Shown here is a 131-nucleotide RNA from Trichormus variabilis, a member of the family "Avalong 5' UTR thermometer".
NCBI's taxonomy places the organism under Bacteria, Bacillati, Cyanophyceae, Nostocaceae, Trichormus variabilis.
By type it is an RNA thermoregulator.
Pairs were carried over by alignment from the consensus structure.
Rfam links the family to the GO terms regulation of translation and response to temperature stimulus.
RNA sequence: GAAGGAGCUAGAGAUUAAGCUUUUCCACAAUGCAAAUUAAUUCAACAAUAUACCUCUUAUUUAAUUAGUAAAAAGCUUAAUAAUAGCCUUCUGAUAAGCAAAUGUUGCAUUUUAGAGGUGAUAUUAUGGCA
Numbered sequence: 001g002a003a004g005g006a007g008c009u010a011g012a013g014a015u016u017a018a019g020c021u022u023u024u025c026c027a028c029a030a031u032g033c034a035a036a037u038u039a040a041u042u043c044a045a046c047a048a049u050a051u052a053c054c055u056c057u058u059a060u061u062u063a064a065u066u067a068g069u070a071a072a073a074a075g076c077u078u079a080a081u082a083a084u085a086g087c088c089u090u091c092u093g094a095u096a097a098g099c100a101a102a103u104g105u106u107g108c109a110u111u112u113u114a115g116a117g118g119u120g121a122u123a124u125u126a127u128g129g130c131a
Stems, first nucleotide, its partner, number of pairs: 007130004014081011031070003035066006086119004091115004098108004